[Rfam]
RNA: Small nucleolar RNA SNORA15
Nucleotides: 141
Base pairs, nucleotide, nucleotide: 001057002056003055004054005053006052014044015043016042017041018040071133072132073130074129075128076127077126078125079124090119091118092117093116094115095114096113097112098111
Number, partner (000 for none) and nucleotide at each position: 001057g002056c003055a004054u005053g006052g007000a008000u009000g010000a011000a012000u013000u014044c015043u016042g017041c018040a019000c020000u021000a022000g023000c024000u025000u026000u027000g028000c029000u030000c031000a032000g033000u034000a035000g036000c037000u038000g039000a040018u041017g042016c043015a044014g045000u046000c047000a048000g049000a050000c051000a052006c053005c054004a055003u056002g057001c058000c059000a060000g061000a062000g063000c064000a065000a066000a067000u068000u069000c070000c071133u072132u073130u074129u075128u076127u077126u078125u079124c080000c081000g082000c083000u084000g085000u086000g087000c088000c089000u090119g091118g092117u093116g094115u095114g096113c097112u098111u099000u100000u101000u102000u103000a104000u105000g106000g107000g108000a109000a110000u111098g112097g113096g114095c115094a116093u117092g118091c119090c120000c121000u122000u123000g124079g125078a126077a127076g128075g129074g130073g131000a132072a133071a134000a135000c136000a137000u138000a139000a140000u141000c